[Rfam]
RNA sequence: CUACGGCGCUGAGUUCAACUCGGCGCCGUAGUUUUAGUAGGAAUUCCAGCCCACAAAGCCGGAGUUUCACUCUGAAUAUUUGAUGACCAGCCGGAGCAUCUGGGGUGGUACCCCGGAAACUAUCUGCGCGGUCCGUAGUGGCUUUACCUGGGUCGCUGCUUCAGAACUGGGAAAGUCAUGCUGCGGUCUCCACGCUGGUGGUGUCUCCUUAUCGAAGGUGACCA
Numbered sequence: 001c002u003a004c005g006g007c008g009c010u011g012a013g014u015u016c017a018a019c020u021c022g023g024c025g026c027c028g029u030a031g032u033u034u035u036a037g038u039a040g041g042a043a044u045u046c047c048a049g050c051c052c053a054c055a056a057a058g059c060c061g062g063a064g065u066u067u068c069a070c071u072c073u074g075a076a077u078a079u080u081u082g083a084u085g086a087c088c089a090g091c092c093g094g095a096g097c098a099u100c101u102g103g104g105g106u107g108g109u110a111c112c113c114c115g116g117a118a119a120c121u122a123u124c125u126g127c128g129c130g131g132u133c134c135g136u137a138g139u140g141g142c143u144u145u146a147c148c149u150g151g152g153u154c155g156c157u158g159c160u161u162c163a164g165a166a167c168u169g170g171g172a173a174a175g176u177c178a179u180g181c182u183g184c185g186g187u188c189u190c191c192a193c194g195c196u197g198g199u200g201g202u203g204u205c206u207c208c209u210u211a212u213c214g215a216a217g218g219u220g221a222c223c224a
Stems, first nucleotide, its partner, number of pairs: 001031013042066006049059002093208004097203002099117006120201005126195003130191002133186002137182004141177001142175004150168002153165002

This 224-nucleotide sequence from Pseudomonas saudiphocaensis belongs to the Rfam family "sucA-II RNA".
The match comes from Rfam's covariance-model search (138 bits).
Lineage of the source: Bacteria > Pseudomonadati > Pseudomonadota > Gammaproteobacteria > Pseudomonas.